[Rfam]
RNA sequence: GCGGCAGUAGCUCAGUUGGUAGAGCAUCAGCUUCCCAAGCUGAGGGUCGCGAGUUCGAGCCUCGUUUGCCGCU
Numbered sequence: 001g002c003g004g005c006a007g008u009a010g011c012u013c014a015g016u017u018g019g020u021a022g023a024g025c026a027u028c029a030g031c032u033u034c035c036c037a038a039g040c041u042g043a044g045g046g047u048c049g050c051g052a053g054u055u056c057g058a059g060c061c062u063c064g065u066u067u068g069c070c071g072c073u
Stems, first nucleotide, its partner, number of pairs: 001072007010025004027043005049065005
RNA: tRNA